[Rfam]
Nucleotides: 111
Base pairs, nucleotide, nucleotide: 008097009096010095011062012061013060014059017032018031019030020029021028039056040055041054042053043052068092069091070090071089073086074085075084076083
Number, partner (000 for none) and nucleotide at each position: 001000g002000a003000g004000g005000c006000c007000a008097u009096g010095u011062g012061c013060g014059g015000g016000a017032g018031c019030u020029c021028g022000g023000a024000g025000g026000a027000c028021c029020g030019g031018g032017c033000u034000g035000a036000g037000a038000g039056g040055g041054c042053g043052g044000c045000u046000g047000a048000c049000a050000c051000g052043c053042c054041g055040c056039c057000g058000a059014c060013c061012g062011c063000u064000g065000g066000a067000a068092c069091c070090u071089g072000a073086c074085c075084g076083g077000g078000u079000a080000a081000u082000g083076c084075c085074g086073g087000c088000g089071u090070a091069g092068g093000g094000a095010g096009c097008a098000c099000u100000g101000c102000c103000a104000u105000g106000a107000g108000c109000a110000c111000g
This 111-nucleotide RNA sequence from Modestobacter versicolor belongs to the Rfam family "TPP riboswitch aptamer (THI element)". Pairs were carried over by alignment from the consensus structure, which is taken from published work. A search with the family's covariance model found it, with a score of 58 bits.